This 113-nucleotide RNA sequence from Aquilegia ecalcarata belongs to the Rfam family "Plastid-psbA-1 3UTR RNA". By type it is a cis-regulatory element. Lineage of the source: Eukaryota > Streptophyta > Streptophytina > Embryophyta > Aquilegia. The sequence is in the family's curated seed alignment. Plastid psbA-1 is a non-coding RNA (ncRNA) present in plastids.
Nucleotides: 113
Base pairs, nucleotide, nucleotide: 010023011022012021013020067113068112069111070110071109072108074106075105077103078102079101081098082097083096084095085094
Number, partner (000 for none) and nucleotide at each position: 001000g002000u003000u004000g005000a006000a007000g008000u009000u010023c011022c012021a013020u014000c015000c016000a017000c018000a019000a020013a021012u022011g023010g024000c025000u026000a027000a028000g029000a030000c031000u032000u033000a034000g035000g036000u037000c038000u039000u040000c041000g042000u043000g044000u045000a046000u047000a048000u049000g050000a051000g052000u053000c054000g055000u056000u057000g058000a059000a060000g061000u062000g063000g064000c065000a066000g067113g068112a069111u070110c071109a072108a073000c074106c075105c076000c077103c078102c079101g080000u081098u082097u083096c084095u085094u086000g087000u088000u089000c090000u091000g092000u093000c094085a095084a096083g097082a098081g099000g100000c101079u102078g103077g104000g105075g106074g107000a108072u109071u110070g111069a112068u113067c
Background
The family is grouped with related families in Rfam's "Plastid-psbA 3UTR RNA clan".